[Rfam]
RNA sequence: UUACCUCUCCCUCCGGGAGAGGUCAAAAUCAGCCUGCUGAUUUUGGGUGAGGGC
Numbered sequence: 001u002u003a004c005c006u007c008u009c010c011c012u013c014c015g016g017g018a019g020a021g022g023u024c025a026a027a028a029u030c031a032g033c034c035u036g037c038u039g040a041u042u043u044u045g046g047g048u049g050a051g052g053g054c
Stems, first nucleotide, its partner, number of pairs: 004022007025044008
RNA: Whalefall-1 RNA